The record is an 89-nucleotide RNA sequence, which matches "GA-cis RNA" in Rfam.

[Rfam]
RNA sequence: UAGAAGAGGAAACAAAAUGAACGAAUUUCAUUUUUCUAUAAAUGUUUUCGACGAGUAGCCGCCGACCAAAGGGAGGGGCAAUACAGAUU
Numbered sequence: 001u002a003g004a005a006g007a008g009g010a011a012a013c014a015a016a017a018u019g020a021a022c023g024a025a026u027u028u029c030a031u032u033u034u035u036c037u038a039u040a041a042a043u044g045u046u047u048u049c050g051a052c053g054a055g056u057a058g059c060c061g062c063c064g065a066c067c068a069a070a071g072g073g074a075g076g077g078g079c080a081a082u083a084c085a086g087a088u089u
Stems, first nucleotide, its partner, number of pairs: 008049006016032006058079003062076002066072002

It is one of the family's seed sequences.